[Rfam]
RNA sequence: UGGGGGAGGCCGGAUCCUGGGCUGUGUCCCGGCGCCCUGUGCUCCAGGGCCUGCACUGUUGGAUUUGCGCUCCUGGCUCACAGCUCCUU
Numbered sequence: 001u002g003g004g005g006g007a008g009g010c011c012g013g014a015u016c017c018u019g020g021g022c023u024g025u026g027u028c029c030c031g032g033c034g035c036c037c038u039g040u041g042c043u044c045c046a047g048g049g050c051c052u053g054c055a056c057u058g059u060u061g062g063a064u065u066u067g068c069g070c071u072c073c074u075g076g077c078u079c080a081c082a083g084c085u086c087c088u089u
Stems, first nucleotide, its partner, number of pairs: 002088005009081001012078002016076002019073003023069004027063003030058003034054002039051001041050003
Shown here is an 89-nucleotide sequence from Canis lupus, a member of the family "mir-8799 microRNA precursor family". The base pairs follow the family's consensus structure, which was predicted with RNAalifold.